[Rfam]
RNA sequence: UAAAAGGGUCGAUUGGCUAGUUAUGCCACACUUAGCUUCAUUUGGUAGGUGUCCUGUGGCAAUCAAGACAUAUGGCCAACAUAAUUUGUGGAACUUUAAAACUUAUAUUUCUAAUUUAAUUUUUU
Numbered sequence: 001u002a003a004a005a006g007g008g009u010c011g012a013u014u015g016g017c018u019a020g021u022u023a024u025g026c027c028a029c030a031c032u033u034a035g036c037u038u039c040a041u042u043u044g045g046u047a048g049g050u051g052u053c054c055u056g057u058g059g060c061a062a063u064c065a066a067g068a069c070a071u072a073u074g075g076c077c078a079a080c081a082u083a084a085u086u087u088g089u090g091g092a093a094c095u096u097u098a099a100a101a102c103u104u105a106u107a108u109u110u111c112u113a114a115u116u117u118a119a120u121u122u123u124u125u
Stems, first nucleotide, its partner, number of pairs: 008080002011077001014028004029051006036044001052075002055072004098123004103119003107115003

Rfam assigns this 125-nucleotide RNA sequence from Hevea brasiliensis to the family "U11 spliceosomal RNA". A search with the family's covariance model found it, with a score of 54 bits. NCBI's taxonomy places the organism under Eukaryota, Streptophyta, Embryophyta, Gunneridae, Hevea. Clan: U1 clan. The base pairs follow the family's consensus structure, which is taken from published work.